[Rfam]
RNA sequence: GCGAUCUUGCCCCUAAUACUCACACAGAUCGACACAUCAUGCAGGGUGCUAAAACAUUGUUUUGGUUGUCUGAUGGGGUUUGUGGAGGCUUAAC
Numbered sequence: 001g002c003g004a005u006c007u008u009g010c011c012c013c014u015a016a017u018a019c020u021c022a023c024a025c026a027g028a029u030c031g032a033c034a035c036a037u038c039a040u041g042c043a044g045g046g047u048g049c050u051a052a053a054a055c056a057u058u059g060u061u062u063u064g065g066u067u068g069u070c071u072g073a074u075g076g077g078g079u080u081u082g083u084g085g086a087g088g089c090u091u092a093a094c
Base pairs, nucleotide, nucleotide: 023084024083025082026081027080028079029078030077035075036074037073038072039071041069042068043067048066049065050064051063052062
Dot-bracket structure: ......................((((((((....(((((.(((....(((((.........)))))))).))))).))))))))..........
The family of this 94-nucleotide sequence from Leucothrix arctica is "t44 RNA". Rfam's curators write: This family consists of a number of bacterial RNA genes of between 135 and 170 bases in length. The t44 gene has been identified in several species of enteric bacteria but homologs have also been identified in Pseudomonas and Coxiella species. It scores 69 bits against the family's covariance model. The organism belongs to Leucothrix, within Bacteria. Rfam classes the family as a small RNA. The base pairs follow the family's consensus structure, which was predicted with LocARNA.